RNA: Small nucleolar RNA snoR8a
Organism: Theobroma umbraticum
RNA sequence: GAGUUAGUGAUGAUUAUAAAAUUAAUUCCUCAUUCUGACUUGCUUAAUUUGUAUAUGACAAAUCUCUUAUUACAAUCAUAGAAUCUGUACUAC
Numbered sequence: 001g002a003g004u005u006a007g008u009g010a011u012g013a014u015u016a017u018a019a020a021a022u023u024a025a026u027u028c029c030u031c032a033u034u035c036u037g038a039c040u041u042g043c044u045u046a047a048u049u050u051g052u053a054u055a056u057g058a059c060a061a062a063u064c065u066c067u068u069a070u071u072a073c074a075a076u077c078a079u080a081g082a083a084u085c086u087g088u089a090c091u092a093c
Base pairs, nucleotide, nucleotide: 003093004092006091007090